This 59-nucleotide RNA sequence from Phasianus colchicus belongs to the Rfam family "U1A polyadenylation inhibition element (PIE)". By type it is a cis-regulatory element. Rfam's curators write: This family represents the U1A polyadenylation inhibition element (PIE).
[Rfam]
RNA sequence: GCAGCAUUGUACCCAGGGUCUGACAUGCAGACAUUGCACCUGGAGCUGCGUGGAAUAAA
Number, nucleotide and partner (000 for none) at each position: 001g049002c048003a047004g046005c045006a000007u000008u000009g000010u000011a000012c000013c043014c042015a041016g040017g000018g032019u031020c030021u029022g028023a000024c000025a000026u000027g000028c022029a021030g020031a019032c018033a000034u000035u000036g000037c000038a000039c000040c016041u015042g014043g013044a000045g005046c004047u003048g002049c001050g000051u000052g000053g000054a000055a000056u000057a000058a000059a000